[Rfam]
This 96-nucleotide RNA sequence from Cervus elaphus belongs to the Rfam family "mir-544 microRNA precursor family".
A reference for the family is Chiang et al. (2010), "Mammalian microRNAs: experimental evaluation of novel and previously annotated genes", Genes Dev.
Rfam links the family to the GO terms miRNA-mediated post-transcriptional gene silencing and RISC complex.
The base pairs follow the family's consensus structure, which was predicted with RNAalifold.
Lineage of the source: Eukaryota > Craniata > Mammalia > Laurasiatheria > Cervus elaphus.
RNA sequence: AUCACCUGGGAAUCUUAUAAUAAUGCAGAUUCUGAUUCAGUAAAUUGGGAUAGAGCUGUGAUUCUGCAUUUCUAACAAGCUCCCAGGUGAUGCUGC
Numbered sequence: 001a002u003c004a005c006c007u008g009g010g011a012a013u014c015u016u017a018u019a020a021u022a023a024u025g026c027a028g029a030u031u032c033u034g035a036u037u038c039a040g041u042a043a044a045u046u047g048g049g050a051u052a053g054a055g056c057u058g059u060g061a062u063u064c065u066g067c068a069u070u071u072c073u074a075a076c077a078a079g080c081u082c083c084c085a086g087g088u089g090a091u092g093c094u095g096c
Stems, first nucleotide, its partner, number of pairs: 003089003009083003014079003018075001020073001022070002025067005031061002